[Rfam]
RNA sequence: UUAAGUAUAAUUGAAUAAGCUCAUAUAAUUUUGGGGAUAUGGCCCAUGAGUUUCUACCGGAUGACCAAUAAUUCGUCCGACUAUGAGUGAGUGCGGGAGCAAG
Numbered sequence: 001u002u003a004a005g006u007a008u009a010a011u012u013g014a015a016u017a018a019g020c021u022c023a024u025a026u027a028a029u030u031u032u033g034g035g036g037a038u039a040u041g042g043c044c045c046a047u048g049a050g051u052u053u054c055u056a057c058c059g060g061a062u063g064a065c066c067a068a069u070a071a072u073u074c075g076u077c078c079g080a081c082u083a084u085g086a087g088u089g090a091g092u093g094c095g096g097g098a099g100c101a102a103g
Base pairs, nucleotide, nucleotide: 019088020087021086022085023084024083025082029049030048032046033045034044035043058079059078060077061076062075063074064073

Purine riboswitch aptamer: a 103-nucleotide RNA from Paenibacillus paeoniae. The organism belongs to Paenibacillus, within Bacteria. Its family is annotated with purine nucleobase biosynthetic process in the Gene Ontology.